RNA sequence: AAGCAUGAUGGAUUAUGCUAUUGCUCCUUCUUUAGCGGGACAGCAGUAUUUCCAAACAUGCAAGAAAAACCUAAGGAGUUGUCAGGGUUACCAGUUGUAAAGUAGUAGCUGAGUAUAUUACUCCUACAGUA
Numbered sequence: 001a002a003g004c005a006u007g008a009u010g011g012a013u014u015a016u017g018c019u020a021u022u023g024c025u026c027c028u029u030c031u032u033u034a035g036c037g038g039g040a041c042a043g044c045a046g047u048a049u050u051u052c053c054a055a056a057c058a059u060g061c062a063a064g065a066a067a068a069a070c071c072u073a074a075g076g077a078g079u080u081g082u083c084a085g086g087g088u089u090a091c092c093a094g095u096u097g098u099a100a101a102g103u104a105g106u107a108g109c110u111g112a113g114u115a116u117a118u119u120a121c122u123c124c125u126a127c128a129g130u131a
Stems, first nucleotide, its partner, number of pairs: 003061005017044003021040002024037001075124004091113001092111007

A member of the RNA family "Small nucleolar RNA U109" from Xenopus laevis, 131 nucleotides long. It scores 66 bits against the family's covariance model. Lineage of the source: Eukaryota > Opisthokonta > Gnathostomata > Amphibia > Xenopus. The family has 26 seed sequences and 1,405 matches in Rfam 15.1. Pairs were carried over by alignment from the consensus structure, which was predicted with WAR. The literature on the family includes a 2005 paper in Nucleic Acids Res by Gu et al., "A novel experimental approach for systematic identification of box H/ACA snoRNAs from eukaryotes".